The family of this 114-nucleotide sequence from Stackebrandtia endophytica is "SAM (S-adenosyl methionine) riboswitch aptamer". NCBI's taxonomy places the organism under Bacteria, Actinomycetota, Glycomycetales, Glycomycetaceae, Stackebrandtia.

RNA sequence: GGUCAUGAGUGACAGCGCGAAGCCCUGGCUGGCUGUCCGGCAACCCAACUCCGCGUGGGGUGCCCCAGGUGAGGACCGGGUCCGAUGGCAACGGCCAUCGGGCAAGACGCGGAC
Numbered sequence: 001g002g003u004c005a006u007g008a009g010u011g012a013c014a015g016c017g018c019g020a021a022g023c024c025c026u027g028g029c030u031g032g033c034u035g036u037c038c039g040g041c042a043a044c045c046c047a048a049c050u051c052c053g054c055g056u057g058g059g060g061u062g063c064c065c066c067a068g069g070u071g072a073g074g075a076c077c078g079g080g081u082c083c084g085a086u087g088g089c090a091a092c093g094g095c096c097a098u099c100g101g102g103c104a105a106g107a108c109g110c111g112g113a114c
Stems, first nucleotide, its partner, number of pairs: 001077004009038001011037006021030002039064003044060003048056002080103010